[Rfam]
RNA sequence: AAAAAGUUUAGAGGCAGCGAUGCAAAUGAGUAAAACGUCGAGCAGGCAUGUGACGACACGUUUGAAAGGUAACCAUCGCCGAAUGAAUAAAUAGGCAUAUUUAAUUCAUGGGGUUAUAAGAAAUACUUAUAACACUCCUACAUCAACAUGUAGAGGCGCUAACGUGAGA
Dot-bracket structure: .......((((.....((((((..(.......((((((.(................)))))))......)...))))))...(((((((((((....)))))).)))))((.((((((((.....)))))))).)).((((((....)))))).....)))).......
This 169-nucleotide RNA from Acholeplasma brassicae belongs to the Rfam family "Lysine riboswitch aptamer". Gene Ontology term of the family: lysine biosynthetic process. The family's consensus secondary structure is taken from published work. Riboswitches are metabolite binding domains within certain messenger RNAs that serve as precision sensors for their corresponding targets.